Fungal signal recognition particle RNA: a 273-nucleotide RNA sequence from Cladophialophora immunda.
[Rfam]
RNA sequence: UGGCUGUCAUGGUCAAAAAGUUAGGAGGUUCCCUUGAGCCUGUGGGCGUCGCUUCACACUCCCACUUGUUCAGUCGUGCCUUGCUCGGAAUUUCGGGUCGUUCAUCGUACUCGUGUGUGCAAACCACGAUGCUACGGAACGUUAAGCAAUCGGAAGUGACACUUGAGGGAAGCGAUUCUGCAGAGGCUCUUCCACCCGGAGUUGGCGAUGUGAGAUUACACACUGGCAAGAUAUGCGAAGUCCCAGGCUCGACGUGGGGGACCGACUUUUUUU
Numbered sequence: 001u002g003g004c005u006g007u008c009a010u011g012g013u014c015a016a017a018a019a020g021u022u023a024g025g026a027g028g029u030u031c032c033c034u035u036g037a038g039c040c041u042g043u044g045g046g047c048g049u050c051g052c053u054u055c056a057c058a059c060u061c062c063c064a065c066u067u068g069u070u071c072a073g074u075c076g077u078g079c080c081u082u083g084c085u086c087g088g089a090a091u092u093u094c095g096g097g098u099c100g101u102u103c104a105u106c107g108u109a110c111u112c113g114u115g116u117g118u119g120c121a122a123a124c125c126a127c128g129a130u131g132c133u134a135c136g137g138a139a140c141g142u143u144a145a146g147c148a149a150u151c152g153g154a155a156g157u158g159a160c161a162c163u164u165g166a167g168g169g170a171a172g173c174g175a176u177u178c179u180g181c182a183g184a185g186g187c188u189c190u191u192c193c194a195c196c197c198g199g200a201g202u203u204g205g206c207g208a209u210g211u212g213a214g215a216u217u218a219c220a221c222a223c224u225g226g227c228a229a230g231a232u233a234u235g236c237g238a239a240g241u242c243c244c245a246g247g248c249u250c251g252a253c254g255u256g257g258g259g260g261a262c263c264g265a266c267u268u269u270u271u272u273u
Stems, first nucleotide, its partner, number of pairs: 001015004018271003027263007035251004040246003044243004049238004067228003071225004076221003080214005085208003089203009099141001101138003105134001107132003111129005117124002142146001152193005162185003169178003